[Rfam]
RNA sequence: UCACUGGGAAGUUCAUCACUACGGUCACAUGCUGGGUAUUUAUCAUUCAUGCUCAAUACUUUGUGGAAGGUCUGAGAGCCAAUAGCUGCCCUGUGGGUAUCAGCGGAUACAGAUGGAUGAGUUUAUUAGUAAGGCUGGGCCCUGGCUUGGACAUAUGCCUGAGAAGCUGAGGGAAGAGAGGGUCUUUCUCCCCUGGAAGAUGCUCACCUCCCAAGGGUUUGGGACAGACUUGUUGCUGAGCUCAAUGGGAUGAAGUGUAGCUAAUGCCAUGUAUGGUCCUCAUAAUCCAAUUCAGAUUAUUUUCCCUCUGA
Number, nucleotide and partner (000 for none) at each position: 001u311002c310003a309004c000005u000006g000007g305008g304009a303010a000011g000012u254013u253014c252015a251016u249017c248018a000019c000020u000021a064022c063023g062024g061025u000026c000027a000028c000029a000030u000031g000032c000033u000034g054035g053036g052037u051038a050039u049040u000041u000042a000043u000044c000045a000046u000047u000048c000049a039050u038051g037052c036053u035054c034055a000056a000057u000058a000059c000060u000061u024062u023063g022064u021065g000066g000067a000068a000069g000070g000071u000072c295073u294074g293075a292076g291077a237078g236079c235080c000081a000082a000083u000084a000085g000086c000087u099088g098089c097090c096091c095092u000093g000094u000095g091096g090097g089098u088099a087100u116101c115102a114103g000104c112105g000106g000107a000108u000109a000110c000111a000112g104113a000114u102115g101116g100117a233118u232119g231120a230121g229122u228123u227124u000125a000126u000127u000128a000129g000130u000131a000132a000133g000134g000135c000136u000137g000138g218139g000140c216141c000142c000143u000144g000145g000146c000147u000148u000149g000150g000151a000152c000153a000154u000155a000156u000157g000158c000159c000160u000161g000162a000163g000164a000165a000166g000167c000168u000169g000170a000171g000172g000173g000174a000175a000176g000177a000178g000179a000180g000181g000182g000183u000184c000185u000186u000187u000188c000189u000190c000191c000192c000193c000194u000195g000196g000197a000198a000199g000200a000201u000202g000203c000204u000205c000206a000207c000208c000209u000210c000211c000212c000213a000214a000215g000216g140217g000218u138219u000220u000221g000222g000223g000224a000225c000226a000227g123228a122229c121230u120231u119232g118233u117234u000235g079236c078237u077238g000239a000240g000241c000242u000243c000244a000245a000246u000247g000248g017249g016250a000251u015252g014253a013254a012255g283256u282257g281258u000259a000260g278261c000262u000263a000264a000265u000266g000267c000268c000269a000270u000271g000272u000273a000274u000275g000276g000277u000278c260279c000280u000281c257282a256283u255284a000285a000286u000287c000288c000289a000290a000291u076292u075293c074294a073295g072296a000297u000298u000299a000300u000301u000302u000303u009304c008305c007306c000307u000308c000309u003310g002311a001